[Rfam]
RNA: MIR2275 microRNA precursor family
Organism: Corchorus olitorius
RNA sequence: GAAUUGUAUGUGAGAGUUGGAGGGAAUUAAACCAAAGUAAUGAAGUAUCGCAUUGACAUUAUAAUUAUGCCUCUAUAUUUUGGUUUAAUUUCCUCCAAUAUCUCACCUCCAAUUC
Numbered sequence: 001g002a003a004u005u006g007u008a009u010g011u012g013a014g015a016g017u018u019g020g021a022g023g024g025a026a027u028u029a030a031a032c033c034a035a036a037g038u039a040a041u042g043a044a045g046u047a048u049c050g051c052a053u054u055g056a057c058a059u060u061a062u063a064a065u066u067a068u069g070c071c072u073c074u075a076u077a078u079u080u081u082g083g084u085u086u087a088a089u090u091u092c093c094u095c096c097a098a099u100a101u102c103u104c105a106c107c108u109c110c111a112a113u114u115c
Base pairs, nucleotide, nucleotide: 004112005111006110008108011105012104013103014102016099017098018097019096020095021094023092024091025090026089027088028087029086030085032083033082034081035080036079037078038077039076